ASdes TB sRNA: a 68-nucleotide sequence from Nocardia arthritidis. It is annotated as a small RNA. Pairs were carried over by alignment from the consensus structure, which is taken from published work. A search with the family's covariance model found it, with a score of 81 bits. The source organism's lineage runs through Bacteria, Actinomycetota, Actinomycetes, Nocardiaceae and Nocardia.

RNA sequence: AGUUCGACCGGGUCCACACCUCGAGUGACGACGAGGUAGUCGCGCAUCACGAUCCCGUGCCGGUUCUC
Numbered sequence: 001a002g003u004u005c006g007a008c009c010g011g012g013u014c015c016a017c018a019c020c021u022c023g024a025g026u027g028a029c030g031a032c033g034a035g036g037u038a039g040u041c042g043c044g045c046a047u048c049a050c051g052a053u054c055c056c057g058u059g060c061c062g063g064u065u066c067u068c
Base pairs, nucleotide, nucleotide: 004063005062006061008059012029013028015027016026017025035056036055038053040052041051042050044048